[Rfam]
RNA: Eukaryotic small subunit ribosomal RNA, nucleotides 1943 to 2116
Organism: Paragnathia formica
RNA sequence: CACCGCCCGUCGCUACUACCGAUUGAAUGAUUCAGUGAGGCUAUUGGACUGGCACCCCAGAAUAGAAAUUUAUUUCUUUCCGGGGGUUGACGGGAAGAUGUCCAAACUGGAUCAUUUAGAGGAAGUAAAAGUCGUAACAAGGUUUCCGUAGGUGAACCUGCGGAAGGAUCAUUA
Numbered sequence: 001c002a003c004c005g006c007c008c009g010u011c012g013c014u015a016c017u018a019c020c021g022a023u024u025g026a027a028u029g030a031u032u033c034a035g036u037g038a039g040g041c042u043a044u045u046g047g048a049c050u051g052g053c054a055c056c057c058c059a060g061a062a063u064a065g066a067a068a069u070u071u072a073u074u075u076c077u078u079u080c081c082g083g084g085g086g087u088u089g090a091c092g093g094g095a096a097g098a099u100g101u102c103c104a105a106a107c108u109g110g111a112u113c114a115u116u117u118a119g120a121g122g123a124a125g126u127a128a129a130a131g132u133c134g135u136a137a138c139a140a141g142g143u144u145u146c147c148g149u150a151g152g153u154g155a156a157c158c159u160g161c162g163g164a165a166g167g168a169u170c171a172u173u174a
Stems, first nucleotide, its partner, number of pairs: 003141001005138001008134002011131001014127004019122002023118001025117012039103002042100004049093003053089001054087005060080003143166010